[Rfam]
Notes
This 196-nucleotide sequence from SAR202 cluster bacterium AC-647-N09_OGT_505m belongs to the Rfam family "Actinobacteria sRNA Ms_IGR-5". Rfam classes the family as a small RNA. Lineage of the source: Bacteria > Bacillati > Chloroflexota > Dehalococcoidia > SAR202 cluster.
RNA sequence: AGCUAAGAAAGGAGGUGAUCUAUAUUUUGUUACCUGAUAAACGGACUUCUAGUGAGGUGUCUGUAGCGUAAACGGCACUGGACAAGAAAGGCGCUCUGGUAUCCGUUUGCGGAAUGCCAGCAGGCACCGGACCCCGAAGCUCCCGGUUCAGUCCACCGGGACGGUCAAUGACCGAAGCGCUUCGGGGUUCCUUUUU
Numbered sequence: 001a002g003c004u005a006a007g008a009a010a011g012g013a014g015g016u017g018a019u020c021u022a023u024a025u026u027u028u029g030u031u032a033c034c035u036g037a038u039a040a041a042c043g044g045a046c047u048u049c050u051a052g053u054g055a056g057g058u059g060u061c062u063g064u065a066g067c068g069u070a071a072a073c074g075g076c077a078c079u080g081g082a083c084a085a086g087a088a089a090g091g092c093g094c095u096c097u098g099g100u101a102u103c104c105g106u107u108u109g110c111g112g113a114a115u116g117c118c119a120g121c122a123g124g125c126a127c128c129g130g131a132c133c134c135c136g137a138a139g140c141u142c143c144c145g146g147u148u149c150a151g152u153c154c155a156c157c158g159g160g161a162c163g164g165u166c167a168a169u170g171a172c173c174g175a176a177g178c179g180c181u182u183c184g185g186g187g188u189u190c191c192u193u194u195u196u
Stems, first nucleotide, its partner, number of pairs: 015064003067111007077100003129190012142160006